[Rfam]
RNA: Small nucleolar RNA snoR60
RNA sequence: GUGCAUAUGAUGAGCUUACUCGGAUUCCCCUUCAAGACAUCUUGAAUGAUGCAGACUCGAGUUUCUGAUGCA
Numbered sequence: 001g002u003g004c005a006u007a008u009g010a011u012g013a014g015c016u017u018a019c020u021c022g023g024a025u026u027c028c029c030c031u032u033c034a035a036g037a038c039a040u041c042u043u044g045a046a047u048g049a050u051g052c053a054g055a056c057u058c059g060a061g062u063u064u065c066u067g068a069u070g071c072a
Base pairs, nucleotide, nucleotide: 002072003071004070005069